[Rfam]
RNA sequence: CGUUGGAAGUUUGACGGAGGCUGACCCUAGUACGAGAGGACCGGGUUGGACCAACCUCUGGUGUACCUGUUGUUGCGCCUAGCAGCACCGCAGGGUAGCUAAGUUGGGUAUAGAUAAGCGCUGAAAGCAUAUAAGCGCGAAGCUAGUCCGAAGAUAAGACUUCCCCAUCAGGUUGGUAGAAGACUACUACGUUGAUAGGCGAGAGGUGUAAGUGCAGUAAUGCAUUGAGCUGACUCGUACUAAUAACCGAUCG
Dot-bracket structure: ....((((((((..((((..(((((((...............))))))).(((((...(((....(((((((((((.....))))))..)))))....))).)))))...(((....(((((...........)))))....))).))))......))))))))...(..((((.((((.......)))).....((((((((.((.....(((((....)))))....))..))))).)))..)))).)...
The record is a 253-nucleotide part of an RNA from Chloracidobacterium thermophilum, which matches "Bacterial large subunit ribosomal RNA" in Rfam. Taxonomically the source falls in Chloracidobacterium thermophilum (Bacteria, Blastocatellia, Chloracidobacteriales, Chloracidobacteriaceae).